Shown here is a 159-nucleotide RNA sequence from Rhizobium sp. RU36D, a member of the family "FMN riboswitch aptamer (RFN element)". Rfam links the family to the GO term FMN binding.
RNA sequence: CAUCGUUCUCAGGGCGGGGUGAAAGUCCCCACCGGCGGUAGGGGCUCAUUGAUGGCCCGAAGCCCGCGAGCGCUUACGUUUCCUUCUGGGAACGGAAGGUCAGCAGAUCCGGUCAGAUGCCGGAGCCGACGGUCAUAGUCCGGAUGAAAGAGAAUGAGG
Dot-bracket structure: ..((((((((......(((.......))).[[((((((.......................[[))))..((...............................))...(((((.......)))))]])).(((.....]]))).......))))))))..